[Rfam]
RNA sequence: GUUAGACCUGCGAGGAGAUGGCCAUCCAGAGGUAAGAGUGGGCAAAGCCCACCGCCAUCUCCUACCCACCCAAAGGUGGGAUUGCAGGUCGGGAGGU
Numbered sequence: 001g002u003u004a005g006a007c008c009u010g011c012g013a014g015g016a017g018a019u020g021g022c023c024a025u026c027c028a029g030a031g032g033u034a035a036g037a038g039u040g041g042g043c044a045a046a047g048c049c050c051a052c053c054g055c056c057a058u059c060u061c062c063u064a065c066c067c068a069c070c071c072a073a074a075g076g077u078g079g080g081a082u083u084g085c086a087g088g089u090c091g092g093g094a095g096g097u
Stems, first nucleotide, its partner, number of pairs: 005090009014062009036053001038052005065080005
The family of this 97-nucleotide RNA is "DUF1874 RNA". It is one of the family's seed sequences. By type it is a cis-regulatory element.